[Rfam]
RNA sequence: AGGAGUAGUUUAGUAUUCUGUUGUUCAAAAGAUAACGGAGCUUACGGUGGACCACUACUUCUAUCAUCACGACACACAACUUUAUUUUACGUUCAGAAGUAAAAUUCAUGAUAUAAACAUAAAGCAAAAGUGUCCAUCAGGUUUUGAUGAAAGUCGCCUACACAGUCAUGGGUUGUCCAUGGCACACAGAGACCGCAAGUCAAAGUGUAUUUUUACCAAAAACCUCUAAGGGGUCGAACCCUGAGUCAGGUCGCAAGCUUGAAGAGAGUUGAGUAAUGAAAGAGUAGUUAAAACCUUAAGAAGUGAUUGGUCUAACCAAUCGGCGAUGAGAGUUACCAUUCAAAAGAUGGUGGAAACGAAGGGAACCACAUAAUCCUUUAAAAGAUUCUCAAAAUUAGGUGUAUUCUCAACCU
Numbered sequence: 001a002g003g004a005g006u007a008g009u010u011u012a013g014u015a016u017u018c019u020g021u022u023g024u025u026c027a028a029a030a031g032a033u034a035a036c037g038g039a040g041c042u043u044a045c046g047g048u049g050g051a052c053c054a055c056u057a058c059u060u061c062u063a064u065c066a067u068c069a070c071g072a073c074a075c076a077c078a079a080c081u082u083u084a085u086u087u088u089a090c091g092u093u094c095a096g097a098a099g100u101a102a103a104a105u106u107c108a109u110g111a112u113a114u115a116a117a118c119a120u121a122a123a124g125c126a127a128a129a130g131u132g133u134c135c136a137u138c139a140g141g142u143u144u145u146g147a148u149g150a151a152a153g154u155c156g157c158c159u160a161c162a163c164a165g166u167c168a169u170g171g172g173u174u175g176u177c178c179a180u181g182g183c184a185c186a187c188a189g190a191g192a193c194c195g196c197a198a199g200u201c202a203a204a205g206u207g208u209a210u211u212u213u214u215a216c217c218a219a220a221a222a223c224c225u226c227u228a229a230g231g232g233g234u235c236g237a238a239c240c241c242u243g244a245g246u247c248a249g250g251u252c253g254c255a256a257g258c259u260u261g262a263a264g265a266g267a268g269u270u271g272a273g274u275a276a277u278g279a280a281a282g283a284g285u286a287g288u289u290a291a292a293a294c295c296u297u298a299a300g301a302a303g304u305g306a307u308u309g310g311u312c313u314a315a316c317c318a319a320u321c322g323g324c325g326a327u328g329a330g331a332g333u334u335a336c337c338a339u340u341c342a343a344a345a346g347a348u349g350g351u352g353g354a355a356a357c358g359a360a361g362g363g364a365a366c367c368a369c370a371u372a373a374u375c376c377u378u379u380a381a382a383a384g385a386u387u388c389u390c391a392a393a394a395u396u397a398g399g400u401g402u403a404u405u406c407u408c409a410a411c412c413u
Stems, first nucleotide, its partner, number of pairs: 001062009010044001012042003017039009046138007124196002139296010154326005165183006184208004191201003211281005224266004229242004246262003250258002305321006328390006334352007353406003358379006398412003
Giant, ornate, lake- and Lactobacillales-derived (GOLLD) RNA: a 413-nucleotide RNA.
The base pairs follow the family's consensus structure, which is taken from published work.
The literature on the family includes a 2009 paper in Nature by Weinberg et al., "Exceptional structured noncoding RNAs revealed by bacterial metagenome analysis".